[Rfam]
RNA sequence: CUUUGUUCAGAGCAAACCUGUCGAAAGACGGGGACGCAGAGCAACGGGGCUAAAGCUGUAAAGCCAUGCCCGCCGAGCCGCCAAA
Numbered sequence: 001c002u003u004u005g006u007u008c009a010g011a012g013c014a015a016a017c018c019u020g021u022c023g024a025a026a027g028a029c030g031g032g033g034a035c036g037c038a039g040a041g042c043a044a045c046g047g048g049g050c051u052a053a054a055g056c057u058g059u060a061a062a063g064c065c066a067u068g069c070c071c072g073c074c075g076a077g078c079c080g081c082c083a084a085a
Stems, first nucleotide, its partner, number of pairs: 012037002017032006041078002045075003048070003055064003
This 85-nucleotide RNA sequence from Candidatus Manganitrophus noduliformans belongs to the Rfam family "c-di-GMP-I riboswitch aptamer".
Pairs were carried over by alignment from the consensus structure, which is taken from published work.
A search with the family's covariance model found it, with a score of 68 bits.